Rfam assigns this 50-nucleotide sequence to the family "Glutamine riboswitch aptamer (glnA leader)".

RNA sequence: ACCGUUUAACUCGAAAGAGUCGGAAGUAGGGAAAACCGAAGAAACGCACU
Numbered sequence: 001a002c003c004g005u006u007u008a009a010c011u012c013g014a015a016a017g018a019g020u021c022g023g024a025a026g027u028a029g030g031g032a033a034a035a036c037c038g039a040a041g042a043a044a045c046g047c048a049c050u
Base pairs, nucleotide, nucleotide: 003046004045005044006043007042009020010019011018012017023047029037030036
Its family is annotated with glutamine binding in the Gene Ontology.